[Rfam]
RNA sequence: GAGCAGUGAUGAACUGUUUUCACUACUGACCUUUAUAAUCAUGAAGGUUUCUACACUUGAUCUGAGCUCA
Numbered sequence: 001g002a003g004c005a006g007u008g009a010u011g012a013a014c015u016g017u018u019u020u021c022a023c024u025a026c027u028g029a030c031c032u033u034u035a036u037a038a039u040c041a042u043g044a045a046g047g048u049u050u051c052u053a054c055a056c057u058u059g060a061u062c063u064g065a066g067c068u069c070a
Base pairs, nucleotide, nucleotide: 001069002068003067004066013034016031018029019028
RNA: Small nucleolar RNA U2-30